[Rfam]
RNA sequence: CACAAUCUUCAGGGCAGGGUGAAAUUCCCUACCGGUGGUAAGCGUUAAGCAAGCCCACGAGCGCCUUUUAAGGGUCAGCAGAUUUGGUGAAAAUCCAAAGCCGACGGUUAGAGUCCGGAUGAAAGAAGAUUAAC
Numbered sequence: 001c002a003c004a005a006u007c008u009u010c011a012g013g014g015c016a017g018g019g020u021g022a023a024a025u026u027c028c029c030u031a032c033c034g035g036u037g038g039u040a041a042g043c044g045u046u047a048a049g050c051a052a053g054c055c056c057a058c059g060a061g062c063g064c065c066u067u068u069u070a071a072g073g074g075u076c077a078g079c080a081g082a083u084u085u086g087g088u089g090a091a092a093a094u095c096c097a098a099a100g101c102c103g104a105c106g107g108u109u110a111g112a113g114u115c116c117g118g119a120u121g122a123a124a125g126a127a128g129a130u131u132a133a134c
Stems, first nucleotide, its partner, number of pairs: 004131007017029003031114002033103002035058004053101002061079002083099005105117003
Rfam assigns this 134-nucleotide sequence from Legionella massiliensis to the family "FMN riboswitch aptamer (RFN element)". The match comes from Rfam's covariance-model search (123 bits).